[Rfam]
RNA sequence: CCCCUUGCACGACUCGGCCCAUGCCCCUACAUUCGUGCUGUCCCGCAAGGGACUAUGGCGAUAAACGCGCCCGUAAUAAGCGGAUCGGACCCGGGGGCGGUACCCGGCGGCUCCACCAAAAUCCCACAUUGGCGGGAUCAUGGGGCCGAAACAGGAUCGACGGACGUCUAAAGGGGAUGGCUUUCGCCCGGUGAGCUACCACCGUUAUCGGUGCAAGCAUGAUAGUUGCCAAUGACAACCGUGCUCCGGUGGCGCUCGCUGCGUAAGCAGUGCGCAAAACCAAAUCUAAGCCCUUGCGUCUAGCAACGUAAGGCGGGGUUCGCAGGCACCUGGCAACAGAAGCCUGCACU
Numbered sequence: 001c002c003c004c005u006u007g008c009a010c011g012a013c014u015c016g017g018c019c020c021a022u023g024c025c026c027c028u029a030c031a032u033u034c035g036u037g038c039u040g041u042c043c044c045g046c047a048a049g050g051g052a053c054u055a056u057g058g059c060g061a062u063a064a065a066c067g068c069g070c071c072c073g074u075a076a077u078a079a080g081c082g083g084a085u086c087g088g089a090c091c092c093g094g095g096g097g098c099g100g101u102a103c104c105c106g107g108c109g110g111c112u113c114c115a116c117c118a119a120a121a122u123c124c125c126a127c128a129u130u131g132g133c134g135g136g137a138u139c140a141u142g143g144g145g146c147c148g149a150a151a152c153a154g155g156a157u158c159g160a161c162g163g164a165c166g167u168c169u170a171a172a173g174g175g176g177a178u179g180g181c182u183u184u185c186g187c188c189c190g191g192u193g194a195g196c197u198a199c200c201a202c203c204g205u206u207a208u209c210g211g212u213g214c215a216a217g218c219a220u221g222a223u224a225g226u227u228g229c230c231a232a233u234g235a236c237a238a239c240c241g242u243g244c245u246c247c248g249g250u251g252g253c254g255c256u257c258g259c260u261g262c263g264u265a266a267g268c269a270g271u272g273c274g275c276a277a278a279a280c281c282a283a284a285u286c287u288a289a290g291c292c293c294u295u296g297c298g299u300c301u302a303g304c305a306a307c308g309u310a311a312g313g314c315g316g317g318g319u320u321c322g323c324a325g326g327c328a329c330c331u332g333g334c335a336a337c338a339g340a341a342g343c344c345u346g347c348a349c350u
Base pairs, nucleotide, nucleotide: 040053041052042051043050044049057188058187059186060185061184067181068180070176071175072174081166082165085163086162087161091107092106093105094104095103108148109147110146111145112144113143114142189204190203191202192201195214196213198212199211200210316331317330318329319328322347323346324345325344326343327342
RNA: Alphaproteobacteria transfer-messenger RNA
Organism: Rhodovulum euryhalinum